Plastid-rpoB 5UTR RNA: a 49-nucleotide RNA from Chimonanthus praecox. Rfam 15.1 lists 102 matches to the family in 69 species. The base pairs follow the family's consensus structure, which was predicted with LocARNA. Rfam's curators write: Plastid rpoB is a non-coding RNA (ncRNA) recognised in plastids. It was found in the 5 prime untranslated region (5UTR) of a chloroplast-encoded RNA polymerase subunit (rpoB) in plastids, suggesting a posible cis-regulatory function.

RNA sequence: UAGACUGUUCUUGAUUAUUCUGUCUUUAUCUCAUUCAUAGAGAACGGAU
Numbered sequence: 001u002a003g004a005c006u007g008u009u010c011u012u013g014a015u016u017a018u019u020c021u022g023u024c025u026u027u028a029u030c031u032c033a034u035u036c037a038u039a040g041a042g043a044a045c046g047g048a049u
Base pairs, nucleotide, nucleotide: 005047006046007045008044009043010042